RNA sequence: CGGUACCUUCGGGGUCGGGUGUAAUUCCCAACCGGCGGUGAUAAAGCAAGCAAUACAUGUUUUUCAGUCCGUGACCCGUAGUGAUUUUAUCAUUACGGUGGAUCCGGUGGAAAUCCGGAGCCGACAGUAACAGUCUGGAUGGGAGAAGGAUAAG
Numbered sequence: 001c002g003g004u005a006c007c008u009u010c011g012g013g014g015u016c017g018g019g020u021g022u023a024a025u026u027c028c029c030a031a032c033c034g035g036c037g038g039u040g041a042u043a044a045a046g047c048a049a050g051c052a053a054u055a056c057a058u059g060u061u062u063u064u065c066a067g068u069c070c071g072u073g074a075c076c077c078g079u080a081g082u083g084a085u086u087u088u089a090u091c092a093u094u095a096c097g098g099u100g101g102a103u104c105c106g107g108u109g110g111a112a113a114u115c116c117g118g119a120g121c122c123g124a125c126a127g128u129a130a131c132a133g134u135c136u137g138g139a140u141g142g143g144a145g146a147a148g149g150a151u152a153a154g
Base pairs, nucleotide, nucleotide: 006149007148008147009146010145017029018028019027031134032133033123034122035072036071037070038069067121068120076098077097103119104118105117106116107115125137126136127135
Description
A member of the RNA family "FMN riboswitch aptamer (RFN element)" from Alteribacillus bidgolensis, 154 nucleotides long. Rfam links the family to the GO term FMN binding. A search with the family's covariance model found it, with a score of 103 bits.